[Rfam]
RNA: Eukaryotic large subunit ribosomal RNA, nucleotides 2662 to 3260
RNA sequence: AAAGAAGACCCUGUUGAGCUUGACUCUAGUCUGACUUUGUGAAGAAUCAUGAGAGGUGUAGCAUAAGUGGGAGCCGCAAGGCGCCAGUGAAAUACCACUACUUUCAUCGAUUCCUUACUUAAUCGGUAAAACGGGAGUGCGCCCGCAAGGGUGUCCUUUUUGGUGUUAAGUCGGUGCCACCCGGUGGCCCGGCGACCCGCGCCGAUGACAGUGUCAGGCGGGGAGUUUGACUGGGGCGGUACAUCUGUCAAAGCGUAACGCAGGUGUCCUAAGGCGAGCUCAGAGAGGACGGAAACCUCUCGUAGAGCAAAAAGGCAAAUGCUUACUUGAUCCUGAUUUUCAGUACGAAUACGGACCGCGAAAGCGUGGCUUAUCGAUCCUUUUGAAUGUGUAAAGUUUCCAGCAAGAGGUGUCAGAAAAGUUACCACAGGGAUAACUGGCUUGUGGCGGCCAAGCGUCCAUAGCGACGUCGCUUUUUGAUCCUUCGAUGUCGGCUCUUCCUAUCAUUGCGAAGCAGAAUUCGCCAAGCGUUGGAUUGUUCACCCACCAAUAGGGAACGUGAGCUGGGUUUAGACCGUCGUGAGACAGGUUAGUUUUAC
Numbered sequence: 001a002a003a004g005a006a007g008a009c010c011c012u013g014u015u016g017a018g019c020u021u022g023a024c025u026c027u028a029g030u031c032u033g034a035c036u037u038u039g040u041g042a043a044g045a046a047u048c049a050u051g052a053g054a055g056g057u058g059u060a061g062c063a064u065a066a067g068u069g070g071g072a073g074c075c076g077c078a079a080g081g082c083g084c085c086a087g088u089g090a091a092a093u094a095c096c097a098c099u100a101c102u103u104u105c106a107u108c109g110a111u112u113c114c115u116u117a118c119u120u121a122a123u124c125g126g127u128a129a130a131a132c133g134g135g136a137g138u139g140c141g142c143c144c145g146c147a148a149g150g151g152u153g154u155c156c157u158u159u160u161u162g163g164u165g166u167u168a169a170g171u172c173g174g175u176g177c178c179a180c181c182c183g184g185u186g187g188c189c190c191g192g193c194g195a196c197c198c199g200c201g202c203c204g205a206u207g208a209c210a211g212u213g214u215c216a217g218g219c220g221g222g223g224a225g226u227u228u229g230a231c232u233g234g235g236g237c238g239g240u241a242c243a244u245c246u247g248u249c250a251a252a253g254c255g256u257a258a259c260g261c262a263g264g265u266g267u268c269c270u271a272a273g274g275c276g277a278g279c280u281c282a283g284a285g286a287g288g289a290c291g292g293a294a295a296c297c298u299c300u301c302g303u304a305g306a307g308c309a310a311a312a313a314g315g316c317a318a319a320u321g322c323u324u325a326c327u328u329g330a331u332c333c334u335g336a337u338u339u340u341c342a343g344u345a346c347g348a349a350u351a352c353g354g355a356c357c358g359c360g361a362a363a364g365c366g367u368g369g370c371u372u373a374u375c376g377a378u379c380c381u382u383u384u385g386a387a388u389g390u391g392u393a394a395a396g397u398u399u400c401c402a403g404c405a406a407g408a409g410g411u412g413u414c415a416g417a418a419a420a421g422u423u424a425c426c427a428c429a430g431g432g433a434u435a436a437c438u439g440g441c442u443u444g445u446g447g448c449g450g451c452c453a454a455g456c457g458u459c460c461a462u463a464g465c466g467a468c469g470u471c472g473c474u475u476u477u478u479g480a481u482c483c484u485u486c487g488a489u490g491u492c493g494g495c496u497c498u499u500c501c502u503a504u505c506a507u508u509g510c511g512a513a514g515c516a517g518a519a520u521u522c523g524c525c526a527a528g529c530g531u532u533g534g535a536u537u538g539u540u541c542a543c544c545c546a547c548c549a550a551u552a553g554g555g556a557a558c559g560u561g562a563g564c565u566g567g568g569u570u571u572a573g574a575c576c577g578u579c580g581u582g583a584g585a586c587a588g589g590u591u592a593g594u595u596u597u598a599c
Stems, first nucleotide, its partner, number of pairs: 002597002010431004015427002017423005023226004030218006039118004044113005049107007066099005073082002122206005132199004140153005170193005229242001230240003243265006268369002274326001276324004280306002283301006307316002331355003336350004357366003380409006390402002440481001442479001444478001446474006455465002492567001493565004497559001498556005505530001509524005532546003536542001573591004577586003